This 72-nucleotide sequence from Nicotiana attenuata belongs to the Rfam family "MIR6151 microRNA precursor family". The source organism's lineage runs through Eukaryota, Streptophyta, Tracheophyta, Solanaceae and Nicotiana. It scores 80 bits against the family's covariance model.
[Rfam]
RNA sequence: ACUCGUUGGAUGAGUGUGAGGCAUUAGAUUGGGUUCAUUCAAUCUGAGCCCUACAUUCAUCCAGGGAUUCGU
Numbered sequence: 001a002c003u004c005g006u007u008g009g010a011u012g013a014g015u016g017u018g019a020g021g022c023a024u025u026a027g028a029u030u031g032g033g034u035u036c037a038u039u040c041a042a043u044c045u046g047a048g049c050c051c052u053a054c055a056u057u058c059a060u061c062c063a064g065g066g067a068u069u070c071g072u
Stems, first nucleotide, its partner, number of pairs: 004066001006064002009061010020050003024047009
Dot-bracket structure: ...(.((.((((((((((.(((.(((((((((......)))))))))))).)))))))))).)).)......